[Rfam]
RNA sequence: AGCACUAUUUUUAAACCUGCUGGUGGAAUUUCCCUGCCCACCGUGGGUUACGCUGUAGUGCAACAGAAUCUCCUGGCUCUUCAGAGCAUGGCUGACCUCCCUCUGUUCAGCUGGUGCUCCUGAGAAGCUAAGGAACAGGA
Dot-bracket structure: .(((((((.....((((...((((((...........))))))..)))).....))))))).......(.((((((((.(.((..(((((((.((...........)).)))).)))...)).).)))).))))).....